[Rfam]
RNA sequence: CGUCUAGACGAUGAGGAGUUGGCCUCGUACAUCCUCGCGGGGCUGGACUCUGACUACAACCCUAUUGUCACAUCUAUUGCAACAAGGGUCGAGUCCAUCUCUCUCAGUGAGCUCUAUGUGCAGAUGCUGAGCUUUGAGA
Numbered sequence: 001c002g003u004c005u006a007g008a009c010g011a012u013g014a015g016g017a018g019u020u021g022g023c024c025u026c027g028u029a030c031a032u033c034c035u036c037g038c039g040g041g042g043c044u045g046g047a048c049u050c051u052g053a054c055u056a057c058a059a060c061c062c063u064a065u066u067g068u069c070a071c072a073u074c075u076a077u078u079g080c081a082a083c084a085a086g087g088g089u090c091g092a093g094u095c096c097a098u099c100u101c102u103c104u105c106a107g108u109g110a111g112c113u114c115u116a117u118g119u120g121c122a123g124a125u126g127c128u129g130a131g132c133u134u135u136g137a138g139a
Stems, first nucleotide, its partner, number of pairs: 004138002007135002088108002091105003
RNA: Small nucleolar RNA Z247
Organism: Eragrostis curvula